[Rfam]
RNA sequence: UAAAAUUGGAGACCAGAGACCAUUAUAAACGGGGCGCUACCGAAAAGCCAAACGAGUAGGAAUAAU
Numbered sequence: 001u002a003a004a005a006u007u008g009g010a011g012a013c014c015a016g017a018g019a020c021c022a023u024u025a026u027a028a029a030c031g032g033g034g035c036g037c038u039a040c041c042g043a044a045a046a047g048c049c050a051a052a053c054g055a056g057u058a059g060g061a062a063u064a065a066u
Stems, first nucleotide, its partner, number of pairs: 007022003033049003040060002
A member of the RNA family "DUF805 RNA" from Pedobacter ginsengisoli, 66 nucleotides long. Rfam classes the family as a cis-regulatory element. Clan: DUF805 clan. The source organism's lineage runs through Bacteria, Sphingobacteriia, Sphingobacteriales, Sphingobacteriaceae and Pedobacter.